[Rfam]
RNA sequence: GUCGAGCUUCUUAACCUAAGCUUGUAACCCAAGUGGGGACAUCAAAGUGUUGGAACGUUGGUUCGGUCUCAUCGGGUCGGCUCUGUUGUGGCUCUAUUCUGACCCGCCCGUUCCAAGCCAGGAGUUGUGCCGAGGAGUUUGGGCGAAGGCUCAUGCUUCACGGUUCCUAGAGCGGAGGACACCGCGGAAGGCUGGCUUCACAGAGCAACGACCACCUCCCGUUCUUGGCAGUGGAAGGAUAACGAGUUGGUGCCACUCGGAUCCAACAUGGCCCGCUAGUAUGAACCAAUUGGACCAACAUUUUU
Dot-bracket structure: (((((((((........))))))....(((....))))))...((((((((((..(((((.((((...(.(.((((((((.((((..((((.(.....(((((.((.((.(((((.(((((((((.(.((((.(((((.(((((....))))).))))).)))).)(....).(((((......((.....(((......))).....))....))))).)))))))))..)))))))....)).))))).))))).)))).)).....)))))).).)..)))).))).))..)))))))))).
Annotation:
This 305-nucleotide sequence from Pyrus ussuriensis x Pyrus communis belongs to the Rfam family "Plant signal recognition particle RNA". The organism belongs to Pyrus, within Eukaryota. The base pairs follow the family's consensus structure, which is taken from published work.